[Rfam]
RNA: Small nucleolar RNA SNORA25
Organism: Theropithecus gelada
RNA sequence: AGGUUAUUUCAAAGAGGGUUCAUGAGGCUAUGAAACCAAGAGCUCUUAAUGCUAUGACCAAAGAUUGAAGUUCUCUAUAGAAUGCCAUAGCACUCAAUAAUGUUAUUGAGGCAAUAUAAGA
Numbered sequence: 001a002g003g004u005u006a007u008u009u010c011a012a013a014g015a016g017g018g019u020u021c022a023u024g025a026g027g028c029u030a031u032g033a034a035a036c037c038a039a040g041a042g043c044u045c046u047u048a049a050u051g052c053u054a055u056g057a058c059c060a061a062a063g064a065u066u067g068a069a070g071u072u073c074u075c076u077a078u079a080g081a082a083u084g085c086c087a088u089a090g091c092a093c094u095c096a097a098u099a100a101u102g103u104u105a106u107u108g109a110g111g112c113a114a115u116a117u118a119a120g121a
Stems, first nucleotide, its partner, number of pairs: 002059006014047008023039001026037002072114001075111002079107001087106006094099001